Description: Flavo-1 RNA: a 79-nucleotide RNA sequence from Algibacter luteus.
RNA sequence: AUUUAGCCCGCGUUAGCGAUUGAAACGACAUCCUUUUUUGAGGGACGAGAAAAAGAUAUAGUAUAAAGCGCGACCCUUG
Numbered sequence: 001a002u003u004u005a006g007c008c009c010g011c012g013u014u015a016g017c018g019a020u021u022g023a024a025a026c027g028a029c030a031u032c033c034u035u036u037u038u039u040g041a042g043g044g045a046c047g048a049g050a051a052a053a054a055g056a057u058a059u060a061g062u063a064u065a066a067a068g069c070g071c072g073a074c075c076c077u078u079g
Base pairs, nucleotide, nucleotide: 016071017070018069020067021066025062026061030057031056032055036052037051038050039049
It is annotated as a small RNA.